RNA sequence: GCGAAGUGAUGAUGAAGCUCAUGAUCUGUCAAUCCAUUGAUUGAUUAAUCGUGAUGUAUACUUAAAAUCCUCCUUAUAGGUUCUGAUCGC
Numbered sequence: 001g002c003g004a005a006g007u008g009a010u011g012a013u014g015a016a017g018c019u020c021a022u023g024a025u026c027u028g029u030c031a032a033u034c035c036a037u038u039g040a041u042u043g044a045u046u047a048a049u050c051g052u053g054a055u056g057u058a059u060a061c062u063u064a065a066a067a068u069c070c071u072c073c074u075u076a077u078a079g080g081u082u083c084u085g086a087u088c089g090c
Stems, first nucleotide, its partner, number of pairs: 001090004
Description:
A member of the RNA family "Small nucleolar RNA snoR14" from Vanilla planifolia, 90 nucleotides long. The family is grouped with related families in Rfam's "SNORD110 clan". Rfam 15.1 lists 668 matches to the family in 221 species. The base pairs follow the family's consensus structure. A search with the family's covariance model found it, with a score of 58 bits.